[Rfam]
Shown here is a 111-nucleotide sequence from Chenopodium quinoa, a member of the family "MIR398 microRNA precursor family". The organism belongs to Chenopodium, within Eukaryota. For this family Rfam cites "Computational identification of plant microRNAs and their targets, including a stress-induced miRNA" (Jones-Rhoades and Bartel, Mol Cell, 2004). Gene Ontology terms of the family: RISC complex and miRNA-mediated post-transcriptional gene silencing.

RNA sequence: AUACACCCCAGAGGAGUGAAAACUGAGAACACAGGAUGUAAUUAGCUUAAUUUGCAUUAUUAAGAUUGCUAAUUAUCUUUUGUGUUCUCAGGUCACCCCUUUGGGGAAUAU
Number, nucleotide and partner (000 for none) at each position: 001a000002u000003a000004c000005a000006c000007c105008c104009c000010a000011g101012a100013g099014g098015a000016g096017u095018g094019a093020a000021a000022a000023c000024u000025g089026a088027g087028a086029a085030c084031a083032c082033a081034g080035g000036a000037u000038g000039u000040a000041a000042u000043u000044a000045g000046c000047u000048u000049a000050a000051u000052u000053u000054g000055c000056a000057u000058u000059a000060u000061u000062a000063a000064g000065a000066u000067u000068g000069c000070u000071a000072a000073u000074u000075a000076u000077c000078u000079u000080u034081u033082g032083u031084g030085u029086u028087c027088u026089c025090a000091g000092g000093u019094c018095a017096c016097c000098c014099c013100u012101u011102u000103g000104g008105g007106g000107a000108a000109u000110a000111u000